[Rfam]
RNA sequence: GCCGAGCUCAGUAAUGCGAGCUUGUGACCCAAAUGGGGGCAAUAAGGUGAUUGGACAUUGGGCCUGACCGGCUUGCUGGGUCACUGGCGGCUCUUAUCUGGCUUGCCCGUUCCAAGUGGAGAGCUGAACCGUUCGGCUUGUGCGAAGGCUUGGGCUGACCGGUUCCUAAAGAGGAGGGCACCGCGUCAGGCUGGCUUCACAGAGCAGCGAUUACUUCCCUCUCUCUACAGUGGAAGGAUUACGAGCCGGUGCUUCCUUGGCCCAUUAAAGCUAGCUGGGCUUGCCCAAUUGGACAGUCACUUUU
Numbered sequence: 001g002c003c004g005a006g007c008u009c010a011g012u013a014a015u016g017c018g019a020g021c022u023u024g025u026g027a028c029c030c031a032a033a034u035g036g037g038g039g040c041a042a043u044a045a046g047g048u049g050a051u052u053g054g055a056c057a058u059u060g061g062g063c064c065u066g067a068c069c070g071g072c073u074u075g076c077u078g079g080g081u082c083a084c085u086g087g088c089g090g091c092u093c094u095u096a097u098c099u100g101g102c103u104u105g106c107c108c109g110u111u112c113c114a115a116g117u118g119g120a121g122a123g124c125u126g127a128a129c130c131g132u133u134c135g136g137c138u139u140g141u142g143c144g145a146a147g148g149c150u151u152g153g154g155c156u157g158a159c160c161g162g163u164u165c166c167u168a169a170a171g172a173g174g175a176g177g178g179c180a181c182c183g184c185g186u187c188a189g190g191c192u193g194g195c196u197u198c199a200c201a202g203a204g205c206a207g208c209g210a211u212u213a214c215u216u217c218c219c220u221c222u223c224u225c226u227a228c229a230g231u232g233g234a235a236g237g238a239u240u241a242c243g244a245g246c247c248g249g250u251g252c253u254u255c256c257u258u259g260g261c262c263c264a265u266u267a268a269a270g271c272u273a274g275c276u277g278g279g280c281u282u283g284c285c286c287a288a289u290u291g292g293a294c295a296g297u298c299a300c301u302u303u304u
Base pairs, nucleotide, nucleotide: 001040002039003038004023005022006021007020008019009018028037029036030035044303045302046301047300048299049298050297051296052295053294056291057290058288059287060286061285062284063283066280068278069277070276071275072274073273075271076270077269078263079262080261081260082259083258086255089253090252092251098249099248100247101246102245103244104243105242107237108236110235111234112233113232114231116228117227118226119225120224121223122222123221126165127164128163129162130161131160133158134157135156136155137154138153139152140151142149143148166171173218174217175216176215177214184209185208186207191202192201193200
RNA: Plant signal recognition particle RNA